[Rfam]
RNA sequence: UUGAUUCUUCGGGGCAGGGUGAAAAUCCCGACCGGCGGUGUUGAACUAUACAAAGUUCUCAGUCCGUGACCCGUAUUCGUUACGGUGGAUCCCAGUGUGAAUCUGGAGCCGACAGUUAAAGUCUGGAUGGGAGAAGGAUCAG
Numbered sequence: 001u002u003g004a005u006u007c008u009u010c011g012g013g014g015c016a017g018g019g020u021g022a023a024a025a026u027c028c029c030g031a032c033c034g035g036c037g038g039u040g041u042u043g044a045a046c047u048a049u050a051c052a053a054a055g056u057u058c059u060c061a062g063u064c065c066g067u068g069a070c071c072c073g074u075a076u077u078c079g080u081u082a083c084g085g086u087g088g089a090u091c092c093c094a095g096u097g098u099g100a101a102u103c104u105g106g107a108g109c110c111g112a113c114a115g116u117u118a119a120a121g122u123c124u125g126g127a128u129g130g131g132a133g134a135a136g137g138a139u140c141a142g
Base pairs, nucleotide, nucleotide: 003140004139005138006137007136008135009134010133017029018028019027031122032121033111034110035067036066037065038064062109063108071085072084090107091106093105094104095103113125114124115123